Shown here is a 114-nucleotide sequence from Pundamilia nyererei, a member of the family "Potassium channel RNA editing signal". This family represents a group of sequences related to the human potassium channel Kv1.1 hairpin element which directs the efficient modification of an adenosine to inosine by an adenosine deaminase acting on RNA (ADAR). The ADAR modification causes an isoleucine/valine recoding event which lies in the ion-conducting pore of the potassium channel. It is thought that this editing event targets the process of fast inactivation and allows a more rapid recovery from inactivation at negative potentials. The match comes from Rfam's covariance-model search (83 bits). The base pairs follow the family's consensus structure, which is taken from published work. Gene Ontology term of the family: adenosine to inosine editing.
RNA sequence: GUGGGUUACGGAGAUAUUUACCCAAAAACUUUGCUGGGAAAGAUAGUCGGCGGGUUGUGCUGCAUUGCGGGGGUUCUGGUGAUCGCCCUGCCUAUACCCAUCAUUGUAAAUAAC
Dot-bracket structure: ((.(..(((((.(((...((................((((........(.............)..........)))).................))...))).)))))..).))